[Rfam]
RNA sequence: GUCAACGCCCCCUCCUGAAUCACAGAUUCGGAAGGGGCUUGUAAGUACCCCAUCAAUAAUUUUUUAAUAAAAAAACAACGGUGUCAUUUCGAGCGAAGCGAGAAAUCCUAAGAUUCCUCACUUCGUUCGGAAUGACAAAAAAAGUCAGAGAAUUUUUGGAUAGGUGCUUAAAAACCCACGUUGACUAGCCUGAGUCCCUGUUUACAGGGACUACGUUCGGCAGGAUGCAGACACCUUCGGAUGUAUUCGCCAGUCCGAAGCGCUGUCGUGGCUCUGUAAAAGCUCUGUGAGGGAGGAGCGGUCAGCCACAUUGCGAAGCCUGCCGAACAUUGGCGAGGCGAACCUUAC
Numbered sequence: 001g002u003c004a005a006c007g008c009c010c011c012c013u014c015c016u017g018a019a020u021c022a023c024a025g026a027u028u029c030g031g032a033a034g035g036g037g038c039u040u041g042u043a044a045g046u047a048c049c050c051c052a053u054c055a056a057u058a059a060u061u062u063u064u065u066a067a068u069a070a071a072a073a074a075a076c077a078a079c080g081g082u083g084u085c086a087u088u089u090c091g092a093g094c095g096a097a098g099c100g101a102g103a104a105a106u107c108c109u110a111a112g113a114u115u116c117c118u119c120a121c122u123u124c125g126u127u128c129g130g131a132a133u134g135a136c137a138a139a140a141a142a143a144g145u146c147a148g149a150g151a152a153u154u155u156u157u158g159g160a161u162a163g164g165u166g167c168u169u170a171a172a173a174a175c176c177c178a179c180g181u182u183g184a185c186u187a188g189c190c191u192g193a194g195u196c197c198c199u200g201u202u203u204a205c206a207g208g209g210a211c212u213a214c215g216u217u218c219g220g221c222a223g224g225a226u227g228c229a230g231a232c233a234c235c236u237u238c239g240g241a242u243g244u245a246u247u248c249g250c251c252a253g254u255c256c257g258a259a260g261c262g263c264u265g266u267c268g269u270g271g272c273u274c275u276g277u278a279a280a281a282g283c284u285c286u287g288u289g290a291g292g293g294a295g296g297a298g299c300g301g302u303c304a305g306c307c308a309c310a311u312u313g314c315g316a317a318g319c320c321u322g323c324c325g326a327a328c329a330u331u332g333g334c335g336a337g338g339c340g341a342a343c344c345u346u347a348c
Stems, first nucleotide, its partner, number of pairs: 001185007010037002012034002014031002188334003192330001193212007215328010231266002235260008243344001246342006268309004274305003280302001282299005288293001

Background:
Shown here is a 348-nucleotide sequence from Desulfonema ishimotonii, a member of the family "HNH endonuclease-associated RNA and ORF (HEARO) RNA". On this family, see Weinberg et al., Nature 2009: "Exceptional structured noncoding RNAs revealed by bacterial metagenome analysis". It scores 110 bits against the family's covariance model.